[Rfam]
RNA sequence: AACUAGCCCCGAUAGUAGUGAAAAUCCUUUUGUUUUUUUGUUUUUAAAAAAACAAAAGAUUGUAGCGGAUAGCGGGAGGGGAU
Numbered sequence: 001a002a003c004u005a006g007c008c009c010c011g012a013u014a015g016u017a018g019u020g021a022a023a024a025u026c027c028u029u030u031u032g033u034u035u036u037u038u039u040g041u042u043u044u045u046a047a048a049a050a051a052a053c054a055a056a057a058g059a060u061u062g063u064a065g066c067g068g069a070u071a072g073c074g075g076g077a078g079g080g081g082a083u
Stems, first nucleotide, its partner, number of pairs: 009075003013071002018066002023061004029056012
Description
This 83-nucleotide RNA sequence from Flavobacterium crassostreae belongs to the Rfam family "Flavo-1 RNA". The match comes from Rfam's covariance-model search (75 bits). Lineage of the source: Bacteria > Bacteroidota > Flavobacteriia > Flavobacteriales > Flavobacterium.